This 78-nucleotide RNA from Gambusia affinis belongs to the Rfam family "Small nucleolar RNA SNORD72". For this family Rfam cites "RNomics: an experimental approach that identifies 201 candidates for novel, small, non-messenger RNAs in mouse" (Huttenhofer et al., EMBO J, 2001). From the family's description: snoRNA HBII-240 belongs to the CD family of snoRNAs. It is the human orthologue of the mouse MBII-240 and is predicted to guide 2'O-ribose methylation of the large 28S rRNA at residue U4590. Rfam 15.1 lists 726 matches to the family in 499 species. The match comes from Rfam's covariance-model search (52 bits).

[Rfam]
RNA sequence: GUCUUGUCAAUGAUGUUACCAAGCAAAUGUCUGAACCAAUGACUUUCUAUGAUUCAAUUAUUUGUACUGAGACAAGAC
Numbered sequence: 001g002u003c004u005u006g007u008c009a010a011u012g013a014u015g016u017u018a019c020c021a022a023g024c025a026a027a028u029g030u031c032u033g034a035a036c037c038a039a040u041g042a043c044u045u046u047c048u049a050u051g052a053u054u055c056a057a058u059u060a061u062u063u064g065u066a067c068u069g070a071g072a073c074a075a076g077a078c
Stems, first nucleotide, its partner, number of pairs: 002077007